[Rfam]
RNA sequence: CUCGUCUCAUCGGGGUGCCUCGAUCCGUGCGCGGAUUCUGGCUGAGAGGCCUUCGGGCUAACCCGCGAACCUGAUCCGGAUCAUGCCGGCGGAGGGAUUGAGCCAAGCGCGGCC
Numbered sequence: 001c002u003c004g005u006c007u008c009a010u011c012g013g014g015g016u017g018c019c020u021c022g023a024u025c026c027g028u029g030c031g032c033g034g035a036u037u038c039u040g041g042c043u044g045a046g047a048g049g050c051c052u053u054c055g056g057g058c059u060a061a062c063c064c065g066c067g068a069a070c071c072u073g074a075u076c077c078g079g080a081u082c083a084u085g086c087c088g089g090c091g092g093a094g095g096g097a098u099u100g101a102g103c104c105a106a107g108c109g110c111g112g113c114c
Stems, first nucleotide, its partner, number of pairs: 006102004011065004017042003049058003070095003076089004
About this RNA:
A member of the RNA family "TPP riboswitch aptamer (THI element)" from Kaistia soli, 114 nucleotides long. NCBI's taxonomy places the organism under Bacteria, Pseudomonadati, Alphaproteobacteria, Kaistiaceae, Kaistia soli. Rfam links the family to the GO term thiamine pyrophosphate binding.